[Rfam]
RNA sequence: GGCAGAUGAUGUCUGUUCUCACGAUGGUCUUCAGACAGCCCCAAGGGCACUGCUGAGACAGCCAGUUGGCAAAACUGAUGCCAGAAG
Numbered sequence: 001g002g003c004a005g006a007u008g009a010u011g012u013c014u015g016u017u018c019u020c021a022c023g024a025u026g027g028u029c030u031u032c033a034g035a036c037a038g039c040c041c042c043a044a045g046g047g048c049a050c051u052g053c054u055g056a057g058a059c060a061g062c063c064a065g066u067u068g069g070c071a072a073a074a075c076u077g078a079u080g081c082c083a084g085a086a087g
Stems, first nucleotide, its partner, number of pairs: 001082004

Small nucleolar RNA SNORD35: an 87-nucleotide sequence from Microtus ochrogaster. It is annotated as a C/D-box small nucleolar RNA. A search with the family's covariance model found it, with a score of 87 bits. Lineage of the source: Eukaryota > Teleostomi > Euteleostomi > Euarchontoglires > Microtus. Rfam's curators write: U35 is a C/D box snoRNA located in intron 6 of ribosomal protein L13A and intron 3 of ribosomal protein S11 in humans and at homologous positions in mouse and chicken ribosomal protein genes. U35 guides the methylation of 2'-O-ribose sites in 28S rRNA. The family has 8 seed sequences and 1,842 matches in Rfam 15.1.